Shown here is a 112-nucleotide RNA from Helcococcus ovis, a member of the family "FMN riboswitch aptamer (RFN element)".
Pairs were carried over by alignment from the consensus structure, which is taken from published work.
The match comes from Rfam's covariance-model search (116 bits).
Rfam links the family to the GO term FMN binding.
RNA sequence: AUAGAUCUUCAGGGCGGGGCGUAAUUCCCUACCGGCGGUAAAGUCCGCGAGCGUAAGCAGAAUCGGUGAAACUCCGAUACCGACAGUAUAGUCUGGAUGAAAGAAGGUAUAU
Number, nucleotide and partner (000 for none) at each position: 001a000002u000003a110004g000005a108006u107007c106008u105009u104010c103011a000012g000013g000014g000015c000016g000017g029018g028019g027020c000021g000022u000023a000024a000025u000026u000027c019028c018029c017030u000031a092032c091033c082034g081035g048036c047037g046038g045039u000040a000041a000042a000043g080044u079045c038046c037047g036048c035049g000050a000051g058052c057053g000054u000055a000056a000057g052058c051059a000060g000061a000062a078063u077064c076065g075066g074067u000068g000069a000070a000071a000072c000073u000074c066075c065076g064077a063078u062079a044080c043081c034082g033083a000084c095085a094086g093087u000088a000089u000090a000091g032092u031093c086094u085095g084096g000097a000098u000099g000100a000101a000102a000103g010104a009105a008106g007107g006108u005109a000110u003111a000112u000
Overview
The RFN element is a highly conserved domain that is found frequently in the 5'-untranslated regions of prokaryotic mRNAs that encode for flavin mononucleotide (FMN) biosynthesis and transport proteins.